A member of the RNA family "ALIL pseudoknot" from Phycicoccus flavus, 132 nucleotides long. Taxonomically the source falls in Phycicoccus (Bacteria, Actinomycetota, Micrococcales, Intrasporangiaceae). The family's consensus secondary structure is taken from published work. The literature on the family includes a 2008 paper in J Biol Chem by Mazauric et al., "Apical loop-internal loop RNA pseudoknots: a new type of stimulator of -1 translational frameshifting in bacteria". Rfam links the family to the GO term positive regulation of translational frameshifting.
[Rfam]
Nucleotides: 132
Base pairs, nucleotide, nucleotide: 016032017031018030019029020028078132079131080130081129082128089127090126092124093123095122096121097120
Number, partner (000 for none) and nucleotide at each position: 001000a002000g003000c004000g005000u006000u007000u008000u009000u010000c011000g012000c013000c014000c015000g016032g017031g018030c019029g020028g021000a022000g023000c024000u025000c026000g027000a028020c029019c030018g031017c032016c033000g034000a035000c036000u037000g038000a039000a040000g041000u042000g043000a044000u045000c046000g047000u048000g049000g050000a051000c052000u053000a054000u055000g056000u057000c058000g059000a060000c061000u062000c063000c064000g065000u066000g067000a068000a069000g070000g071000a072000g073000c074000g075000a076000c077000a078132c079131g080130g081129c082128g083000u084000c085000g086000a087000g088000c089127c090126g091000g092124u093123c094000u095122g096121u097120g098000u099000c100000g101000u102000g103000c104000u105000g106000u107000c108000u109000c110000a111000g112000c113000a114000g115000g116000g117000c118000a119000u120097c121096a122095c123093g124092a125000u126090c127089g128082c129081g130080c131079c132078g
Record summary:
The family has 26 seed sequences and 2,146 matches in Rfam 15.1.